[Rfam]
RNA: MIR7486 microRNA precursor family
Organism: Gossypium schwendimanii
RNA sequence: CACGUCAGCGCGAGUUGCUGACGUAGAAGCAAAUCGCGUCCUUGAGGGAGAGAUUUGCUUCCACAUCAGCAACUCGCGCUGACGUGG
Number, nucleotide and partner (000 for none) at each position: 001c086002a085003c084004g083005u082006c081007a080008g079009c078010g077011c076012g075013a074014g073015u072016u071017g070018c069019u068020g067021a066022c000023g064024u063025a000026g061027a060028a059029g058030c057031a056032a055033a054034u053035c052036g000037c050038g000039u000040c047041c046042u000043u000044g000045a000046g041047g040048g000049a000050g037051a000052g035053a034054u033055u032056u031057g030058c029059u028060u027061c026062c000063a024064c023065a000066u021067c020068a019069g018070c017071a016072a015073c014074u013075c012076g011077c010078g009079c008080u007081g006082a005083c004084g003085u002086g001087g000